[Rfam]
RNA sequence: AUUCCGCACACACUCACCCGUGACGGCAGGAGCGGGGGACCCACAGGCAGUACCGCCUGUUCCGGUCUCCGGAACAGGCUUGGGGUUUAGUCGCGUCCCGACGCGGCCGGGCAUCUCCAGCUCGCACCCGACAGCUCACCUCGCAGGCGCCGGAGAGGAAUUCG
Numbered sequence: 001a002u003u004c005c006g007c008a009c010a011c012a013c014u015c016a017c018c019c020g021u022g023a024c025g026g027c028a029g030g031a032g033c034g035g036g037g038g039a040c041c042c043a044c045a046g047g048c049a050g051u052a053c054c055g056c057c058u059g060u061u062c063c064g065g066u067c068u069c070c071g072g073a074a075c076a077g078g079c080u081u082g083g084g085g086u087u088u089a090g091u092c093g094c095g096u097c098c099c100g101a102c103g104c105g106g107c108c109g110g111g112c113a114u115c116u117c118c119a120g121c122u123c124g125c126a127c128c129c130g131a132c133a134g135c136u137c138a139c140c141u142c143g144c145a146g147g148c149g150c151c152g153g154a155g156a157g158g159a160a161u162u163c164g
Base pairs, nucleotide, nucleotide: 003031004030005029032144033143034142035141036140037139042082043081083129084128085127091106092105093104094103109123110122111121112120
The family of this 164-nucleotide sequence from Streptomyces griseorubiginosus is "c-di-AMP riboswitch aptamer (ydaO/yuaA leader)".
Lineage of the source: Bacteria > Bacillati > Actinomycetota > Streptomycetaceae > Streptomyces.
Its family is annotated with cyclic-di-AMP binding and regulation of gene expression in the Gene Ontology.
The pairing is the family consensus, mapped onto this sequence.
It scores 52 bits against the family's covariance model.